[Rfam]
RNA sequence: AAGAGAAGUCAAUGAUGGUUUUAACCUAAAAUGUCUGAACCCGUUUGAAGCAUUGUAAUGCAGUCUUUUUGCCAUUCUGAGACUUGGGAGAUA
Numbered sequence: 001a002a003g004a005g006a007a008g009u010c011a012a013u014g015a016u017g018g019u020u021u022u023a024a025c026c027u028a029a030a031a032u033g034u035c036u037g038a039a040c041c042c043g044u045u046u047g048a049a050g051c052a053u054u055g056u057a058a059u060g061c062a063g064u065c066u067u068u069u070u071g072c073c074a075u076u077c078u079g080a081g082a083c084u085u086g087g088g089a090g091a092u093a
Base pairs, nucleotide, nucleotide: 006085007084008083009082010081
RNA: Small nucleolar RNA SNORD91 family